[Rfam]
RNA sequence: UCCCAAGCUGUGACCCUCCAAAGGGAAGCACUUUCUGUUUGUUGUCUGAGAGAAAACAAAGUGCUUCCUUUUAGAGUGUGACCGCUUGGGA
Numbered sequence: 001u002c003c004c005a006a007g008c009u010g011u012g013a014c015c016c017u018c019c020a021a022a023g024g025g026a027a028g029c030a031c032u033u034u035c036u037g038u039u040u041g042u043u044g045u046c047u048g049a050g051a052g053a054a055a056a057c058a059a060a061g062u063g064c065u066u067c068c069u070u071u072u073a074g075a076g077u078g079u080g081a082c083c084g085c086u087u088g089g090g091a
Stems, first nucleotide, its partner, number of pairs: 001091005007085002010082002013079002016076003020072015038056002
This 91-nucleotide sequence from Macaca mulatta belongs to the Rfam family "mir-515 microRNA precursor family". The source organism's lineage runs through Eukaryota, Primates, Catarrhini, Cercopithecinae and Macaca. The sequence is in the family's curated seed alignment. On this family, see Bentwich et al., Nat Genet 2005: "Identification of hundreds of conserved and nonconserved human microRNAs". Its family is annotated with RISC complex and miRNA-mediated post-transcriptional gene silencing in the Gene Ontology.